The record is a 38-nucleotide RNA from Mesobacillus zeae, which matches "Ribosomal protein L19 leader" in Rfam. From the family's description: This family is a putative r-protein leader autoregulatory structure found in B. subtilis and other low-GC Gram-positive bacteria. It is annotated as a cis-regulatory leader. The match comes from Rfam's covariance-model search (39 bits).

RNA sequence: ACGAUGUUCCGCUGCACGAAGAGAUGUAUGAGCAUCUG
Numbered sequence: 001a002c003g004a005u006g007u008u009c010c011g012c013u014g015c016a017c018g019a020a021g022a023g024a025u026g027u028a029u030g031a032g033c034a035u036c037u038g
Base pairs, nucleotide, nucleotide: 003036004035005034006033007032008031009030013028014027015026016025